[Rfam]
RNA: Small nucleolar RNA SNORD116
RNA sequence: UGAUCGAAGGAUGACUUCAUGUAUACAUUCCUUGGAAAGCCGGAACAAAAUGAGUGAAACCCCAUACCGCCAUCCUCGUCGAACUGAGGUCC
Number, nucleotide and partner (000 for none) at each position: 001u000002g091003a090004u089005c088006g000007a000008a000009g000010g000011a000012u000013g000014a000015c000016u000017u000018c000019a000020u000021g000022u000023a000024u000025a000026c056027a055028u054029u053030c052031c000032u048033u047034g046035g000036a000037a000038a000039g000040c000041c000042g000043g000044a000045a000046c034047a033048a032049a000050a000051u000052g030053a029054g028055u027056g026057a000058a000059a000060c000061c000062c000063c000064a000065u000066a000067c000068c000069g000070c000071c000072a000073u000074c000075c000076u000077c000078g000079u000080c000081g000082a000083a000084c000085u000086g000087a000088g005089g004090u003091c002092c000